[Rfam]
The family of this 201-nucleotide sequence from Oryza meyeriana is "MIR1435 microRNA precursor family". The match comes from Rfam's covariance-model search (94 bits). The organism belongs to Oryza meyeriana, within Eukaryota. Pairs were carried over by alignment from the consensus structure, which was predicted with RNAalifold.

RNA sequence: GACUUUUUUUGUAAGUCAAACCUUUUUUAAGUUUAACCAAGUUUAUAGAAAAACGUAGCAACAUUUUUAACACAAAACAAAUAUACUAUCAAAAUGUAUUCAAUGAUGGAUUUAAUGAAACUAAUAUGGUGUUGUAGAUGUUGCUACGUUUUUCUGUAAACUUAGUUAAACUUAAAGAAAUUUGAUCUACAAAAAAGUCCA
Number, nucleotide and partner (000 for none) at each position: 001g000002a000003c000004u000005u196006u195007u194008u193009u192010u000011g190012u189013a188014a000015g186016u185017c184018a183019a182020a181021c000022c000023u178024u177025u176026u175027u000028u000029a000030a000031g000032u170033u169034u168035a167036a166037c000038c000039a000040a000041g000042u000043u000044u000045a000046u156047a155048g154049a153050a152051a151052a150053a149054c000055g000056u146057a145058g144059c000060a142061a141062c140063a139064u138065u137066u136067u000068u134069a133070a000071c000072a000073c128074a127075a000076a125077a000078c000079a000080a000081a000082u000083a000084u000085a000086c000087u000088a000089u000090c000091a000092a000093a000094a000095u000096g000097u000098a000099u000100u000101c000102a000103a000104u000105g000106a000107u000108g000109g000110a000111u000112u000113u000114a000115a000116u000117g000118a000119a000120a000121c000122u000123a000124a000125u076126a000127u074128g073129g000130u000131g000132u000133u069134g068135u000136a066137g065138a064139u063140g062141u061142u060143g000144c058145u057146a056147c000148g000149u053150u052151u051152u050153u049154c048155u047156g046157u000158a000159a000160a000161c000162u000163u000164a000165g000166u036167u035168a034169a033170a032171c000172u000173u000174a000175a026176a025177g024178a023179a000180a000181u020182u019183u018184g017185a016186u015187c000188u013189a012190c011191a000192a009193a008194a007195a006196a005197g000198u000199c000200c000201a000